[Rfam]
RNA sequence: UAAGAGCAAUUUUAUUAUGUUAAGAUUAUAUAUUGUACAUUUCAAGUACAUAUAUAUAUAUCUACAUAUAUAAAAAUAUAAAAAAAAAAAUUAUAAAUAAAUAUAUAUUUGCUUAAAAAAAAAAAAAACUUGAAGUUAGCACGAUAAUCAGGGCAUAAGAUGUUAUAAAUUGUGAGCAUCCUAUGCAGUACAAGUUUGUGCACAAUU
Numbered sequence: 001u002a003a004g005a006g007c008a009a010u011u012u013u014a015u016u017a018u019g020u021u022a023a024g025a026u027u028a029u030a031u032a033u034u035g036u037a038c039a040u041u042u043c044a045a046g047u048a049c050a051u052a053u054a055u056a057u058a059u060a061u062c063u064a065c066a067u068a069u070a071u072a073a074a075a076a077u078a079u080a081a082a083a084a085a086a087a088a089a090a091u092u093a094u095a096a097a098u099a100a101a102u103a104u105a106u107a108u109u110u111g112c113u114u115a116a117a118a119a120a121a122a123a124a125a126a127a128a129c130u131u132g133a134a135g136u137u138a139g140c141a142c143g144a145u146a147a148u149c150a151g152g153g154c155a156u157a158a159g160a161u162g163u164u165a166u167a168a169a170u171u172g173u174g175a176g177c178a179u180c181c182u183a184u185g186c187a188g189u190a191c192a193a194g195u196u197u198g199u200g201c202a203c204a205a206u207u
Stems, first nucleotide, its partner, number of pairs: 004114006011107001013105003018100001023063004027058007034050005067080005139201006153186005159180006